Background: A member of the RNA family "Eukaryotic large subunit ribosomal RNA" from Theileria orientalis, 434 nucleotides of a longer RNA. Rfam 15.1 lists 107,465 matches to the family in 2,616 species. The family's consensus secondary structure is taken from published work. For this family Rfam cites "Crystal structure of the ribosome at 5.5 A resolution" (Yusupov et al., Science, 2001).

[Rfam]
RNA sequence: GGUAGUAGUUAAUAUUCAAAUGAGAAUUUUGAAGACUGAAGUGGAGCAGGGUUCCAUGUGAACUAUGUUUGGACAUGGGUUAGCCGGUCCUAAGCGCCAGCUUAACUGCGCGUGAGGUGACAUUAGUCCGCUACGCGAAAGGGAAUCGGGCUAACAUUCCCGAGCCGGGUCGUGGAUACUGGGUGGCAACACAAGUGAACUUCUUGACGUAGGCGUGGGUCCCGGGAAGCGUUAUCUUUGCUUUUUAACAGACAUUAGUACCCUGGAAUCAGAUUAUCUGGCGAUAGGGACUAACUCCUGGAAUAGCAUCUCGACUUUCGGGGUGUCCGGUGCGCCCUCGACUGCCCUUGAAAAAAGAAGGGAACAUUGUUAUUCGCACCCCCGUCCGUACCUAUAUCCGCAUCAGGUCUCCAGGGUUAGCAGCCUCUGGUCGA
Dot-bracket structure: ..............((((((.......))))))((((.....((((..((...((((((...(.......).))))))......(((.((...((..(.((......)))........(.........).....))....))...(((((........)))))..((((..(((.((.....(((....))).......((((((...((((.((.((((.(((((((((.........))))))...(((.........(((((...((((.....))))...)))))........)))......(((((((.....)))))))..)))...)))).)).)))).........))))))...........))...))).)))).)))..)).....((......)).)))).((((.....))))..))))..